[Rfam]
RNA sequence: AAGUAUUACAGCUCUUUUUAGAAUUUAUCUAGCAGGUUUUCCAGUCAACACUGGAAGACCACC
Numbered sequence: 001a002a003g004u005a006u007u008a009c010a011g012c013u014c015u016u017u018u019u020a021g022a023a024u025u026u027a028u029c030u031a032g033c034a035g036g037u038u039u040u041c042c043a044g045u046c047a048a049c050a051c052u053g054g055a056a057g058a059c060c061a062c063c
Base pairs, nucleotide, nucleotide: 035060036059037058038057039056040055041054042053043052044051045050

Background
U7 small nuclear RNA: a 63-nucleotide sequence from Microcebus murinus. The source organism's lineage runs through Eukaryota, Sarcopterygii, Tetrapoda, Amniota and Microcebus. From the family's description: Animal histone pre-mRNAs are spliced by a different mechanism than nuclear pre-mRNAs and self-splicing introns. This processing involves the U7 snRNP, which contains only one RNA species: U7. The 5' end of U7 RNA is thought to base-pair to a conserved spacer element downstream of the cleavage site in histone pre-mRNA. This family contains a number of annotated U7 pseudogenes.